[Rfam]
RNA sequence: UAAGGUUGCGUGAUGACCAGUCGCAUAGUUCAAAUGAUAAUCUUUCUCUAGGUUAUGAUUAUUUUGAACGUCUUUCGCUCCUAUCUGACCACCUUA
Numbered sequence: 001u002a003a004g005g006u007u008g009c010g011u012g013a014u015g016a017c018c019a020g021u022c023g024c025a026u027a028g029u030u031c032a033a034a035u036g037a038u039a040a041u042c043u044u045u046c047u048c049u050a051g052g053u054u055a056u057g058a059u060u061a062u063u064u065u066g067a068a069c070g071u072c073u074u075u076c077g078c079u080c081c082u083a084u085c086u087g088a089c090c091a092c093c094u095u096a
Stems, first nucleotide, its partner, number of pairs: 004093003008089001
Shown here is a 96-nucleotide RNA sequence from Cocos nucifera, a member of the family "Small nucleolar RNA snR60/Z15/Z230/Z193/J17". Rfam 15.1 lists 3,592 matches to the family in 1,855 species. Clan: SNORD77 clan. A search with the family's covariance model found it, with a score of 68 bits. Lineage of the source: Eukaryota > Embryophyta > Arecaceae > Cocoseae > Cocos. The base pairs follow the family's consensus structure. Gene Ontology terms of the family: RNA processing and nucleolus.